[Rfam]
RNA: MIR7502 microRNA precursor family
RNA sequence: UGUUAAAAAAUUCAUCUAUUUCUAAUGUUAAAAACCGGUCCAUGUAUGCUAGCAAAAGGUGAAAGUGGCACGUCAUGUGUUACUAUCUAGUUAUUCCGUUAACUACACCAGUUUUUAAUAGUACAAAUGGAUGGAUUAUUUUACA
Numbered sequence: 001u002g003u004u005a006a007a008a009a010a011u012u013c014a015u016c017u018a019u020u021u022c023u024a025a026u027g028u029u030a031a032a033a034a035c036c037g038g039u040c041c042a043u044g045u046a047u048g049c050u051a052g053c054a055a056a057a058g059g060u061g062a063a064a065g066u067g068g069c070a071c072g073u074c075a076u077g078u079g080u081u082a083c084u085a086u087c088u089a090g091u092u093a094u095u096c097c098g099u100u101a102a103c104u105a106c107a108c109c110a111g112u113u114u115u116u117a118a119u120a121g122u123a124c125a126a127a128u129g130g131a132u133g134g135a136u137u138a139u140u141u142u143a144c145a
Stems, first nucleotide, its partner, number of pairs: 002144002005141003009137008018128004023123002026120001028118008